The family of this 59-nucleotide sequence from Mus spicilegus is "Antizyme RNA frameshifting stimulation element". It is annotated as a frameshift element. The literature on the family includes a 2004 paper in J Mol Biol by Ivanov et al., "Identification of a new antizyme mRNA +1 frameshifting stimulatory pseudoknot in a subset of diverse invertebrates and its apparent absence in intermediate species". Lineage of the source: Eukaryota > Craniata > Rodentia > Muridae > Mus. Rfam describes the family as follows. This family represents a structural element which is found in antizyme mRNA and is known to promote frameshifting. The family's consensus secondary structure is taken from published work.
[Rfam]
Nucleotides: 059
Base pairs, nucleotide, nucleotide: 008042009041010040011039013037014036015035016034017033018032025059026058027057029055030054
Number, partner (000 for none) and nucleotide at each position: 001000u002000g003000a004000u005000g006000u007000c008042c009041c010040u011039c012000g013037c014036c015035c016034a017033c018032c019000c020000c021000u022000g023000a024000a025059g026058a027057u028000c029055c030054c031000a032018g033017g034016u035015g036014g037013g038000c039011g040010a041009g042008g043000a044000c045000a046000c047000a048000g049000g050000c051000a052000g053000a054030g055029g056000c057027a058026u059025c